[Rfam]
RNA sequence: CGGAGCAGCCGCAGCUCGAAGCCCGCAGAGGACGCCCUGAGUAGCGAGCCGAGGGCAGAAGGAUCUACGGACUCGCGCCGCAUCCACCUGUCUGCCGUGCCGGGCCCAGCGCGCAGCGGGCACGCCGCGCGCGCGGAGCAGCCGUGCCCGCCGCCCGGGCCCCGCGCCAGGGCGCACACGCUCCGGCCCCCCCACCCGGCCCGGGCGGGAGUUUGCACCUCUCCCAGCCCGGGUACUCGGGCCGCCGCUGCAAAUCCAACUUUGGGAAAAGUUUUCGGGGGGAGACUUUGGCUUUGAGGUGCCCACCUCUGCGCUUUCCGACUUCGGGGGCCUUUCCAGAAAAUGUUGCAAAAAAGCUAAGCCGGCGGGCAGAGGAGAGCGCUUUUAGCCGGCGAGUGAAGACCAACGAUCGACUGCCGUGUUCUUUUUCCUCUUGGAGGUUGGAGUCCCCUGGGCGCCCCCACACGGCUAGACGCCUCGGCGGGUUCGCGACGCAGCCCCCCGGCAGUGGAUGCUCGCUCCGGCUCGGGAUCCGCCCAGGUAGCGGCCUCGGACCCUGGUCCCGUACCCAGGCCCUUCCUAGUCCCCCAACGACGGAGCCGGGGC
Numbered sequence: 001c002g003g004a005g006c007a008g009c010c011g012c013a014g015c016u017c018g019a020a021g022c023c024c025g026c027a028g029a030g031g032a033c034g035c036c037c038u039g040a041g042u043a044g045c046g047a048g049c050c051g052a053g054g055g056c057a058g059a060a061g062g063a064u065c066u067a068c069g070g071a072c073u074c075g076c077g078c079c080g081c082a083u084c085c086a087c088c089u090g091u092c093u094g095c096c097g098u099g100c101c102g103g104g105c106c107c108a109g110c111g112c113g114c115a116g117c118g119g120g121c122a123c124g125c126c127g128c129g130c131g132c133g134c135g136g137a138g139c140a141g142c143c144g145u146g147c148c149c150g151c152c153g154c155c156c157g158g159g160c161c162c163c164g165c166g167c168c169a170g171g172g173c174g175c176a177c178a179c180g181c182u183c184c185g186g187c188c189c190c191c192c193c194a195c196c197c198g199g200c201c202c203g204g205g206c207g208g209g210a211g212u213u214u215g216c217a218c219c220u221c222u223c224c225c226a227g228c229c230c231g232g233g234u235a236c237u238c239g240g241g242c243c244g245c246c247g248c249u250g251c252a253a254a255u256c257c258a259a260c261u262u263u264g265g266g267a268a269a270a271g272u273u274u275u276c277g278g279g280g281g282g283a284g285a286c287u288u289u290g291g292c293u294u295u296g297a298g299g300u301g302c303c304c305a306c307c308u309c310u311g312c313g314c315u316u317u318c319c320g321a322c323u324u325c326g327g328g329g330g331c332c333u334u335u336c337c338a339g340a341a342a343a344u345g346u347u348g349c350a351a352a353a354a355a356g357c358u359a360a361g362c363c364g365g366c367g368g369g370c371a372g373a374g375g376a377g378a379g380c381g382c383u384u385u386u387a388g389c390c391g392g393c394g395a396g397u398g399a400a401g402a403c404c405a406a407c408g409a410u411c412g413a414c415u416g417c418c419g420u421g422u423u424c425u426u427u428u429u430c431c432u433c434u435u436g437g438a439g440g441u442u443g444g445a446g447u448c449c450c451c452u453g454g455g456c457g458c459c460c461c462c463a464c465a466c467g468g469c470u471a472g473a474c475g476c477c478u479c480g481g482c483g484g485g486u487u488c489g490c491g492a493c494g495c496a497g498c499c500c501c502c503c504g505g506c507a508g509u510g511g512a513u514g515c516u517c518g519c520u521c522c523g524g525c526u527c528g529g530g531a532u533c534c535g536c537c538c539a540g541g542u543a544g545c546g547g548c549c550u551c552g553g554a555c556c557c558u559g560g561u562c563c564c565g566u567a568c569c570c571a572g573g574c575c576c577u578u579c580c581u582a583g584u585c586c587c588c589c590a591a592c593g594a595c596g597g598a599g600c601c602g603g604g605g606c
Stems, first nucleotide, its partner, number of pairs: 002257002005251005011245002014242005020237002025224001027222005033174005039168001041167002046162001048160002051105001054101003061096002064094001067091004075081002110157002113154002116151009125136004177215002180212005186206004191199002259272005279581006286573003290569002298520004307514001308512005318505003326502006348357002361393006369386001371384002374380001396495003401490001403489001405487003410481004414472002416469007423445003427440005446456004523562003528557003532554004539550004586605004592599001
RNA: c-sis internal ribosome entry site (IRES)